[Rfam]
RNA sequence: CUAUGGACUAAAGUCCAUGGCGGAAGGAG
Numbered sequence: 001c002u003a004u005g006g007a008c009u010a011a012a013g014u015c016c017a018u019g020g021c022g023g024a025a026g027g028a029g
Stems, first nucleotide, its partner, number of pairs: 001020008